[Rfam]
The family of this 173-nucleotide RNA sequence from Vreelandella subglaciescola is "TPP riboswitch aptamer (THI element)". The family's consensus secondary structure is taken from published work.
RNA sequence: UCUCGCUUGACGGGGUGCCGGUGAUUCCGGCUGAGAUAGCGCAGAUGCCCGCCGUGUUGCCACGGCCGCAUCCCAAGCGCUGGUCCCGUUGAACCUGAUCCGGCUAAUUUCUUCAUCGCGUUUCGCGCGGUUCGAGGAAGGGUACCGGCGUAGGGAUCAAGCACUGGUGCACU
Numbered sequence: 001u002c003u004c005g006c007u008u009g010a011c012g013g014g015g016u017g018c019c020g021g022u023g024a025u026u027c028c029g030g031c032u033g034a035g036a037u038a039g040c041g042c043a044g045a046u047g048c049c050c051g052c053c054g055u056g057u058u059g060c061c062a063c064g065g066c067c068g069c070a071u072c073c074c075a076a077g078c079g080c081u082g083g084u085c086c087c088g089u090u091g092a093a094c095c096u097g098a099u100c101c102g103g104c105u106a107a108u109u110u111c112u113u114c115a116u117c118g119c120g121u122u123u124c125g126c127g128c129g130g131u132u133c134g135a136g137g138a139a140g141g142g143u144a145c146c147g148g149c150g151u152a153g154g155g156a157u158c159a160a161g162c163a164c165u166g167g168u169g170c171a172c173u
Stems, first nucleotide, its partner, number of pairs: 006161005011088004016082001017031005038081005094154004100148004
The match comes from Rfam's covariance-model search (67 bits). Rfam links the family to the GO term thiamine pyrophosphate binding. About the family: Vitamin B(1) in its active form thiamin pyrophosphate (TPP) is an essential coenzyme that is synthesised by coupling of pyrimidine and thiazole moieties in bacteria. The previously detected thiamin-regulatory element, thi box was extended, resulting in a new, highly conserved RNA secondary structure, the THI element, which is widely distributed in eubacteria and also occurs in some archaea.